Shown here is a 74-nucleotide sequence from Alligator mississippiensis, a member of the family "mir-148/mir-152 microRNA precursor family". The base pairs follow the family's consensus structure, which was predicted with RNAalifold. A reference for the family is Lagos-Quintana et al. (2002), "Identification of tissue-specific microRNAs from mouse", Curr Biol.
RNA sequence: CUCAGCUCAGGUUCUGUGGUACACUUGGACUCGGACUCUGGAGCAGUCAGUGCAUGACAGAACUUGGGUUUGGA
Numbered sequence: 001c002u003c004a005g006c007u008c009a010g011g012u013u014c015u016g017u018g019g020u021a022c023a024c025u026u027g028g029a030c031u032c033g034g035a036c037u038c039u040g041g042a043g044c045a046g047u048c049a050g051u052g053c054a055u056g057a058c059a060g061a062a063c064u065u066g067g068g069u070u071u072g073g074a
Base pairs, nucleotide, nucleotide: 004070005069006068007067008066009065010064011063012062013061014060015059016058022052023051024050025049028048029047030046031045